[Rfam]
Notes: The record is a 136-nucleotide RNA sequence, which matches "THF (Tetrahydrofolate) riboswitch aptamer" in Rfam. The base pairs follow the family's consensus structure, which is taken from published work. Tetrahydrofolate (THF) riboswitch was first reported for Ames et al. as an RNA motif in 5' untranslated (5'-UTR)regions of folate transport and biosynthesis genes in Firmicutes genomes. Its family is annotated with tetrahydrofolate metabolic process in the Gene Ontology.
RNA sequence: AACAGAGUAGGGAGCAGUGAGUUUCUCAAGUGUCGGGCAUACAGGGAGUUGAUGCCCGAACGAAAACUUCUCCGCGCGUAAAUACCCUUUCAUGCGCUCGGAUACGGUUGCUGUGCUUCUUUCGCAUCCCGCUGGC
Numbered sequence: 001a002a003c004a005g006a007g008u009a010g011g012g013a014g015c016a017g018u019g020a021g022u023u024u025c026u027c028a029a030g031u032g033u034c035g036g037g038c039a040u041a042c043a044g045g046g047a048g049u050u051g052a053u054g055c056c057c058g059a060a061c062g063a064a065a066a067c068u069u070c071u072c073c074g075c076g077c078g079u080a081a082a083u084a085c086c087c088u089u090u091c092a093u094g095c096g097c098u099c100g101g102a103u104a105c106g107g108u109u110g111c112u113g114u115g116c117u118u119c120u121u122u123c124g125c126a127u128c129c130c131g132c133u134g135g136c
Base pairs, nucleotide, nucleotide: 003134004133005132010123011122012121013120014119016117017116018115019114020112021111022110030061031060033059034058035057036056037055038054039053040052044129045128046127048125065109066108067107068106